[Rfam]
Rfam assigns this 126-nucleotide RNA from Xylanimonas allomyrinae to the family "SAM (S-adenosyl methionine) riboswitch aptamer". SAM-IV is a mRNA element that regulates gene expression via direct sensing of S-adenosylmethionine (SAM or AdoMet). SAM-IV riboswitches share conserved nucleotide positions with the previously described SAM-I riboswitches sequence analysis and molecular recognition experiments suggest that SAM-I and SAM-IV riboswitches share similar ligand binding sites, but have different scaffolds. A search with the family's covariance model found it, with a score of 72 bits. The organism belongs to Xylanimonas, within Bacteria. Clan: SAM clan.
RNA sequence: GGUCACGAGUCCCAGCGCCAAGUCCCGGCUCGCUGGGCAGCAACCCCAAGCCACGACGGGGUGCUCCGGGAGAUGACCUGGCCGCCGGCCGCCCACGGGCGAGUCGCCGCGCGGCAAGCGUGCGAC
Numbered sequence: 001g002g003u004c005a006c007g008a009g010u011c012c013c014a015g016c017g018c019c020a021a022g023u024c025c026c027g028g029c030u031c032g033c034u035g036g037g038c039a040g041c042a043a044c045c046c047c048a049a050g051c052c053a054c055g056a057c058g059g060g061g062u063g064c065u066c067c068g069g070g071a072g073a074u075g076a077c078c079u080g081g082c083c084g085c086c087g088g089c090c091g092c093c094c095a096c097g098g099g100c101g102a103g104u105c106g107c108c109g110c111g112c113g114g115c116a117a118g119c120g121u122g123c124g125a126c
Base pairs, nucleotide, nucleotide: 001078002077003076004075009038011037012036013035014034015033016032021030022029039065040064041063044061045060046059081115082114083113084112085111